This 35-nucleotide RNA belongs to the Rfam family "DUF805b RNA". By type it is a cis-regulatory element.
RNA sequence: AAGGAGGCAUCCGAAAAUCCUGAAGAGAGUAGGAA
Numbered sequence: 001a002a003g004g005a006g007g008c009a010u011c012c013g014a015a016a017a018u019c020c021u022g023a024a025g026a027g028a029g030u031a032g033g034a035a
Base pairs, nucleotide, nucleotide: 002021003020004019005018010034011033012032